[Rfam]
RNA sequence: GCCUUGUGGUUCCUAGAGUCCGCUCCAAACCGCUGAACUGUGGGUUUUUGUAAACAGGCGCACAAUGAUCCUGCGAUUUGAUGCAUGGAAGCUGCCAAUAUAGCUUUUUAGCCCGGUUGCAGAAACAAUU
Numbered sequence: 001g002c003c004u005u006g007u008g009g010u011u012c013c014u015a016g017a018g019u020c021c022g023c024u025c026c027a028a029a030c031c032g033c034u035g036a037a038c039u040g041u042g043g044g045u046u047u048u049u050g051u052a053a054a055c056a057g058g059c060g061c062a063c064a065a066u067g068a069u070c071c072u073g074c075g076a077u078u079u080g081a082u083g084c085a086u087g088g089a090a091g092c093u094g095c096c097a098a099u100a101u102a103g104c105u106u107u108u109u110a111g112c113c114c115g116g117u118u119g120c121a122g123a124a125a126c127a128a129u130u
Base pairs, nucleotide, nucleotide: 001059002058003057004056007050008049012044013043014042015041017039019036020035022033023032071122073120074119075118076117077116078115083112084111085109088107090105091104092103093102094101
This 130-nucleotide sequence from Gymnodraco acuticeps belongs to the Rfam family "Small nucleolar RNA SNORA84". A search with the family's covariance model found it, with a score of 57 bits. On this family, see Marker et al., Curr Biol 2002: "Experimental RNomics: identification of 140 candidates for small non-messenger RNAs in the plant Arabidopsis thaliana". The family's consensus secondary structure was predicted with WAR. Lineage of the source: Eukaryota > Eumetazoa > Gnathostomata > Notothenioidei > Gymnodraco.